[Rfam]
RNA: Proteo-phage-1 RNA
RNA sequence: CUGUAGCCAGGACAGCCCUCGGGAACCCCUGGACGCGGUAUCGCCGGAAGUCACGCGUCACGAAAGAACACCGGCAGCC
Numbered sequence: 001c002u003g004u005a006g007c008c009a010g011g012a013c014a015g016c017c018c019u020c021g022g023g024a025a026c027c028c029c030u031g032g033a034c035g036c037g038g039u040a041u042c043g044c045c046g047g048a049a050g051u052c053a054c055g056c057g058u059c060a061c062g063a064a065a066g067a068a069c070a071c072c073g074g075c076a077g078c079c
Stems, first nucleotide, its partner, number of pairs: 001015004007032005016023002034057004039053001043075005